This 113-nucleotide sequence from Listeria kieliensis belongs to the Rfam family "Listeria LhrC". Lineage of the source: Bacteria > Bacillati > Bacillota > Listeriaceae > Listeria. The base pairs follow the family's consensus structure, which is taken from published work. Its Rfam clan is "LhrC clan". By type it is a small RNA. From the family's description: This RNA was identifed by screening for RNA molecules which co-immunoprecipitated with the RNA chaperone Hfq. However, neither the stability nor the activity of LhrC is depending on the presence of Hfq. LhrC is transcribed from the intergenic region between the protein coding genes cysK, a putative cysteine synthase and sul, a putative dihydropteroate synthase. In Listeria monocytogenes four additional copies of lhrC have been identifed in the genome, three of which are located in tandem repeat upstream of the originally characterised lhrC. This RNA molecule appears to be conserved amongst Listeria species but has not been identified in other bacterial species. The family has 12 seed sequences and 13 matches in Rfam 15.1.
RNA sequence: AUAAGCUAACAACAAGCAAAACUUUUUCAUUUUCUUUCUCCCAAAAGAAUGAAAAUCCCAAAACUCCCUUUUUGAUCGAUGCGGUUUACUCUCUUUUCCGCAUCGGUUUUUUU
Numbered sequence: 001a002u003a004a005g006c007u008a009a010c011a012a013c014a015a016g017c018a019a020a021a022c023u024u025u026u027u028c029a030u031u032u033u034c035u036u037u038c039u040c041c042c043a044a045a046a047g048a049a050u051g052a053a054a055a056u057c058c059c060a061a062a063a064c065u066c067c068c069u070u071u072u073u074g075a076u077c078g079a080u081g082c083g084g085u086u087u088a089c090u091c092u093c094u095u096u097u098c099c100g101c102a103u104c105g106g107u108u109u110u111u112u113u
Stems, first nucleotide, its partner, number of pairs: 024055009076106009

It scores 111 bits against the family's covariance model. Gene Ontology terms of the family: negative regulation of translational initiation and mRNA binding.